This 90-nucleotide sequence from Fictibacillus enclensis belongs to the Rfam family "ZMP/ZTP riboswitch aptamer (pfl RNA motif)".
Rfam links the family to the GO terms regulation of purine nucleotide biosynthetic process and one-carbon metabolic process.
RNA sequence: AAUAAAAGCAGCAACUGACGAGAGCGUGUGGAAUUGACCACAAGGAAGCUGCAAGAAUCACCUAAAAAGCCGUUCGUCUGGGCAGGGGUA
Dot-bracket structure: ..(....(((((..(([[[[[......((((......))))..))..)))))....)...........(((..]]]]]..))).......

Source information: The literature on the family includes a 2015 paper in Nat Struct Mol Biol by Jones and Ferre-D'Amare, "Recognition of the bacterial alarmone ZMP through long-distance association of two RNA subdomains".